[Rfam]
Record summary:
Rfam assigns this 85-nucleotide RNA sequence from Vitis vinifera to the family "Small nucleolar RNA R44/J54/Z268 family". Rfam links the family to the GO terms nucleolus and RNA processing. The family's RNA type in Rfam is C/D-box small nucleolar RNA. NCBI's taxonomy places the organism under Eukaryota, Embryophyta, Spermatophyta, Magnoliopsida, Vitis. Pairs were carried over by alignment from the consensus structure, which was predicted with PFOLD.
Nucleotides: 085
Base pairs, nucleotide, nucleotide: 002084003083004082005081006080
Number, partner (000 for none) and nucleotide at each position: 001000c002084a003083u004082g005081c006080a007000a008000g009000u010000g011000a012000u013000g014000u015000u016000a017000a018000a019000g020000c021000a022000g023000a024000c025000a026000g027000g028000g029000a030000c031000a032000u033000c034000u035000g036000c037000a038000c039000u040000c041000u042000u043000u044000a045000g046000g047000a048000g049000a050000u051000u052000g053000a054000u055000g056000a057000c058000u059000u060000g061000u062000u063000c064000u065000u066000g067000g068000g069000a070000a071000u072000c073000u074000c075000u076000c077000u078000g079000a080006u081005g082004c083003a084002u085000u